This 107-nucleotide RNA sequence from Raineya orbicola belongs to the Rfam family "SAM riboswitch aptamer (S box leader)". NCBI's taxonomy places the organism under Bacteria, Bacteroidota, Cytophagia, Raineyaceae, Raineya. From the family's description: The SAM riboswitch is found upstream of a number of genes which code for proteins involved in methionine or cysteine biosynthesis in Gram-positive bacteria.
RNA sequence: AGUUUAUAAAGAACGAAGGGAGAGAACAGGCUCUGUGAACUUCUGGCAACCACUCCCCGCGAGAACGGUGCCAAAACCUGCCUAAAAUUUUUUAGGAAUUAUAAACC
Number, nucleotide and partner (000 for none) at each position: 001a000002g106003u105004u104005u103006a102007u101008a100009a000010a000011g000012a000013a044014c000015g043016a042017a041018g040019g000020g000021a000022g033023a032024g031025a000026a000027c080028a079029g078030g077031c024032u023033c022034u000035g000036u000037g000038a000039a000040c018041u017042u016043c015044u013045g072046g071047c070048a069049a000050c068051c067052a000053c063054u062055c061056c000057c000058c000059g000060c000061g055062a054063g053064a000065a000066c000067g051068g050069u048070g047071c046072c045073a000074a000075a000076a099077c030078c029079u028080g027081c096082c095083u094084a093085a092086a091087a000088u000089u000090u000091u086092u085093u084094a083095g082096g081097a000098a000099u076100u008101a007102u006103a005104a004105a003106c002107c000